This 47-nucleotide RNA from Caenorhabditis elegans belongs to the Rfam family "Histone 3' UTR stem-loop".
It scores 34 bits against the family's covariance model.
Rfam 15.1 lists 44,596 matches to the family in 976 species.
Pairs were carried over by alignment from the consensus structure, which is taken from published work.

RNA sequence: CCAACGGCCCUCUUUAGGGCCACACAUGAUAAAAAUCCGAAUAUUCU
Numbered sequence: 001c002c003a004a005c006g007g008c009c010c011u012c013u014u015u016a017g018g019g020c021c022a023c024a025c026a027u028g029a030u031a032a033a034a035a036u037c038c039g040a041a042u043a044u045u046c047u
Base pairs, nucleotide, nucleotide: 006021007020008019009018010017011016